RNA sequence: CGGCCGGUCCGGGCCCCUCUGGCAGCGUCCUGCUGCGAUGUCGGACUGGAAGU
Numbered sequence: 001c002g003g004c005c006g007g008u009c010c011g012g013g014c015c016c017c018u019c020u021g022g023c024a025g026c027g028u029c030c031u032g033c034u035g036c037g038a039u040g041u042c043g044g045a046c047u048g049g050a051a052g053u
Stems, first nucleotide, its partner, number of pairs: 006047007022036005
RNA: terC RNA